glmS glucosamine-6-phosphate activated ribozyme aptamer: a 160-nucleotide sequence from Bacillus sp. OK048. Taxonomically the source falls in Bacillus (Bacteria, Bacillati, Caryophanales, Bacillaceae). Pairs were carried over by alignment from the consensus structure, which is taken from published work. Rfam classes the family as a riboswitch.
[Rfam]
RNA sequence: GUAGUAAUAAAAGCGCCUGAACUAACCAAGGUGGGUUAGUUGACGAGGAGGAGGUUUAUCGAAUGUUCGGCGGAUACCUCCCGGUUGGACGCACAACCGAUUGUUUCUUCUUUAAAACAUCAAGGCAACUUGGUGCACAAAGAGAAGGAAAUGCGCAUAC
Numbered sequence: 001g002u003a004g005u006a007a008u009a010a011a012a013g014c015g016c017c018u019g020a021a022c023u024a025a026c027c028a029a030g031g032u033g034g035g036u037u038a039g040u041u042g043a044c045g046a047g048g049a050g051g052a053g054g055u056u057u058a059u060c061g062a063a064u065g066u067u068c069g070g071c072g073g074a075u076a077c078c079u080c081c082c083g084g085u086u087g088g089a090c091g092c093a094c095a096a097c098c099g100a101u102u103g104u105u106u107c108u109u110c111u112u113u114a115a116a117a118c119a120u121c122a123a124g125g126c127a128a129c130u131u132g133g134u135g136c137a138c139a140a141a142g143a144g145a146a147g148g149a150a151a152u153g154c155g156c157a158u159a160c
Stems, first nucleotide, its partner, number of pairs: 020041008050081005059070004082099006104150007118135007
Dot-bracket structure: ...................((((((((......))))))))........(((((....((((....))))......)))))((((((......))))))....(((((((.......(((((((....)))))))........)))))))..........